[Rfam]
RNA sequence: ACCGUUCAUUUAUGACGUAUUAAGCUCUCGGGACUAUGACUGCAAUUGUCCUUGUUUGGACACCGAGUGGCUCCUGUCACUCUGUUUGACGCCUCCCUGUUAUCAACUUUCAAAAGCCGCCGGAAACGGCGGCUGUUUUUUG
Numbered sequence: 001a002c003c004g005u006u007c008a009u010u011u012a013u014g015a016c017g018u019a020u021u022a023a024g025c026u027c028u029c030g031g032g033a034c035u036a037u038g039a040c041u042g043c044a045a046u047u048g049u050c051c052u053u054g055u056u057u058g059g060a061c062a063c064c065g066a067g068u069g070g071c072u073c074c075u076g077u078c079a080c081u082c083u084g085u086u087u088g089a090c091g092c093c094u095c096c097c098u099g100u101u102a103u104c105a106a107c108u109u110u111c112a113a114a115a116g117c118c119g120c121c122g123g124a125a126a127c128g129g130c131g132g133c134u135g136u137u138u139u140u141u142g
Stems, first nucleotide, its partner, number of pairs: 003042002006015002016038002021036002025032002048061004065082005088101004112137002115134008
Rfam assigns this 142-nucleotide sequence from Candidatus Afipia apatlaquensis to the family "Alphaproteobacterial sRNA BjrC1505". NCBI's taxonomy places the organism under Bacteria, Alphaproteobacteria, Hyphomicrobiales, Nitrobacteraceae, Afipia. On this family, see Madhugiri et al., RNA Biol 2012: "Small RNAs of the Bradyrhizobium/Rhodopseudomonas lineage and their analysis". The match comes from Rfam's covariance-model search (118 bits).